[Rfam]
RNA sequence: CUGCUGCCACAACGGCUUCCUGGCGUGGCGGUUUCAUUUUGUACCGGAGCA
Numbered sequence: 001c002u003g004c005u006g007c008c009a010c011a012a013c014g015g016c017u018u019c020c021u022g023g024c025g026u027g028g029c030g031g032u033u034u035c036a037u038u039u040u041g042u043a044c045c046g047g048a049g050c051a
Stems, first nucleotide, its partner, number of pairs: 004031007013022002015050003019047002